[Rfam]
RNA sequence: CUCGCUGUAUGAUAUGUUUGGUAUAUUAGGUUGUCUUGGAUCCAAACGCAACUAUAUAUCAAACAUAUUUGUACAGAGGC
Numbered sequence: 001c002u003c004g005c006u007g008u009a010u011g012a013u014a015u016g017u018u019u020g021g022u023a024u025a026u027u028a029g030g031u032u033g034u035c036u037u038g039g040a041u042c043c044a045a046a047c048g049c050a051a052c053u054a055u056a057u058a059u060c061a062a063a064c065a066u067a068u069u070u071g072u073a074c075a076g077a078g079g080c
Stems, first nucleotide, its partner, number of pairs: 005076005011069015029053005
RNA: mir-190 microRNA precursor family
Organism: Eptatretus burgeri